Rfam assigns this 48-nucleotide RNA sequence from Microvirga alba to the family "Guanidine-II riboswitch aptamer (mini-ykkC)". A search with the family's covariance model found it, with a score of 42 bits. Rfam describes the family as follows. Simpler in structure and has fewer highly conserved nucleotide positions than the ykkC-yxkD leader. On this family, see Weinberg et al., Nucleic Acids Res 2007: "Identification of 22 candidate structured RNAs in bacteria using the CMfinder comparative genomics pipeline". Its family is annotated with regulation of gene expression in the Gene Ontology.

[Rfam]
RNA sequence: GGACGAGGACGACCUCGUUUUUCCCGACAAUCGGUGGGGACGGCCCUG
Number, nucleotide and partner (000 for none) at each position: 001g020002g019003a018004c017005g016006a015007g014008g013009a000010c000011g000012a000013c008014c007015u006016c005017g004018u003019u002020u001021u000022u000023c000024c000025c000026g000027a000028c000029a000030a000031u000032c000033g000034g000035u048036g047037g046038g045039g044040a000041c000042g000043g000044c039045c038046c037047u036048g035